[Rfam]
RNA sequence: AGAGCUCACAAGUUUGAGGCCACAAUAGAAGCACUCAUGGCGUGGUCCUGUCAGAUUUCAGUGAAUCUCUGAAUUCUGCU
Numbered sequence: 001a002g003a004g005c006u007c008a009c010a011a012g013u014u015u016g017a018g019g020c021c022a023c024a025a026u027a028g029a030a031g032c033a034c035u036c037a038u039g040g041c042g043u044g045g046u047c048c049u050g051u052c053a054g055a056u057u058u059c060a061g062u063g064a065a066u067c068u069c070u071g072a073a074u075u076c077u078g079c080u
Base pairs, nucleotide, nucleotide: 016048018047019046020045021044024080026078027077028076029075030074031043032042053068054067055066056065057064058063

Annotation:
The record is an 80-nucleotide RNA from Crocodylus porosus, which matches "Mammalian CPEB3 ribozyme" in Rfam. From the family's description: The mammalian CPEB3 ribozyme is a self cleaving RNA located in the second intron of the CPEB3 gene which belongs to a family of genes regulating messenger RNA polyadenylation. Taxonomically the source falls in Crocodylus (Eukaryota, Gnathostomata, Teleostomi, Sauropsida). Pairs were carried over by alignment from the consensus structure, which is taken from published work.